[Rfam]
RNA sequence: UGUAUGAAAGGGAAUGAAGUUCUCCCUUGGGUAACCUAAACCGUUUAUUAAGCUGAUGACUUCUACAAUUAC
Numbered sequence: 001u002g003u004a005u006g007a008a009a010g011g012g013a014a015u016g017a018a019g020u021u022c023u024c025c026c027u028u029g030g031g032u033a034a035c036c037u038a039a040a041c042c043g044u045u046u047a048u049u050a051a052g053c054u055g056a057u058g059a060c061u062u063c064u065a066c067a068a069u070u071a072c
Stems, first nucleotide, its partner, number of pairs: 010026004016063006043053003
This 72-nucleotide sequence from Negativicoccus succinicivorans belongs to the Rfam family "Fluoride riboswitch aptamer (crcB RNA motif)".
NCBI's taxonomy places the organism under Bacteria, Bacillati, Negativicutes, Veillonellales, Negativicoccus.
It scores 49 bits against the family's covariance model.
Its family is annotated with response to fluoride and positive regulation of gene expression in the Gene Ontology.